[Rfam]
RNA sequence: UGGAUGUGUCAGGGAGGCAGUGCAUUACUAGCUGGCUGUUAUCGUGUCAUUUUAACAGCUGCUAGUUGCACUCCCCCCUGUUGCAUGCA
Numbered sequence: 001u002g003g004a005u006g007u008g009u010c011a012g013g014g015a016g017g018c019a020g021u022g023c024a025u026u027a028c029u030a031g032c033u034g035g036c037u038g039u040u041a042u043c044g045u046g047u048c049a050u051u052u053u054a055a056c057a058g059c060u061g062c063u064a065g066u067u068g069c070a071c072u073c074c075c076c077c078c079u080g081u082u083g084c085a086u087g088c089a
Base pairs, nucleotide, nucleotide: 001089002088004086005085006084007083008082010080011079012078013077016074017073019072020071021070022069023068024067027066028065029064030063031062032061034059040054041053
Background:
The family of this 89-nucleotide RNA sequence from Erinaceus europaeus is "mir-449 microRNA precursor family". Rfam 15.1 lists 325 matches to the family in 192 species. It scores 64 bits against the family's covariance model. Pairs were carried over by alignment from the consensus structure, which was predicted with RNAalifold. A reference for the family is Linsen et al. (2010), "Small RNA expression and strain specificity in the rat", BMC Genomics.